[Rfam]
RNA: dfrA-dnaX RNA
RNA sequence: AUGCCAAAUGAUAAAGCUAUAAUUAUUUCAUCAUAAUAACCUAAAUAUAAUUAUCAAAAAGGAAUUAUGAUAUAAU
Numbered sequence: 001a002u003g004c005c006a007a008a009u010g011a012u013a014a015a016g017c018u019a020u021a022a023u024u025a026u027u028u029c030a031u032c033a034u035a036a037u038a039a040c041c042u043a044a045a046u047a048u049a050a051u052u053a054u055c056a057a058a059a060a061g062g063a064a065u066u067a068u069g070a071u072a073u074a075a076u
Base pairs, nucleotide, nucleotide: 030071031070032069033068034067035066036065037064